[Rfam]
RNA sequence: AGUGCUUUCCAGUUCACUUAAAUAGAACUGG
Numbered sequence: 001a002g003u004g005c006u007u008u009c010c011a012g013u014u015c016a017c018u019u020a021a022a023u024a025g026a027a028c029u030g031g
Stems, first nucleotide, its partner, number of pairs: 001018004009031005014025001
Rfam assigns this 31-nucleotide sequence from Furovirus avenae to the family "Pseudoknot of upstream pseudoknot domain (UPD) of the 3'UTR". The family's RNA type in Rfam is cis-regulatory element. The family's consensus secondary structure is taken from published work.